[Rfam]
RNA: Bacterial small signal recognition particle RNA
Organism: Tengunoibacter tsumagoiensis
RNA sequence: AAUUGGGUCCUGUGCGGCAGAUGUCUGUGAACCCCGCCAGGACCGAGAGGAAGCAACGGUAAAUAGGCCGCUCUGGGUGCCACAGUGUUGCCUGAUUACG
Numbered sequence: 001a002a003u004u005g006g007g008u009c010c011u012g013u014g015c016g017g018c019a020g021a022u023g024u025c026u027g028u029g030a031a032c033c034c035c036g037c038c039a040g041g042a043c044c045g046a047g048a049g050g051a052a053g054c055a056a057c058g059g060u061a062a063a064u065a066g067g068c069c070g071c072u073c074u075g076g077g078u079g080c081c082a083c084a085g086u087g088u089u090g091c092c093u094g095a096u097u098a099c100g
Stems, first nucleotide, its partner, number of pairs: 004094005010085005015077001018075004023068006034059003043050002